Nucleotides: 090
Stems, first nucleotide, its partner, number of pairs: 001090007045051002
Number, partner (000 for none) and nucleotide at each position: 001090c002089u003088g004087a005086a006085g007084a008000a009000a010000u011000g012000a013000u014000g015000a016000g017000a018000a019000a020000u021000c022000a023000g024000a025000a026000a027000a028000u029000a030000u031000c032000u033000u034000a035000g036000g037000a038000c039000a040000c041000c042000u043000u044000c045051u046050g047000a048000c049000a050046c051045a052000u053000u054000a055000u056000u057000g058000u059000g060000u061000a062000u063000g064000a065000g066000a067000a068000a069000g070000a071000c072000u073000u074000c075000g076000u077000u078000a079000u080000c081000u082000g083000a084007u085006c086005u087004u088003c089002a090001g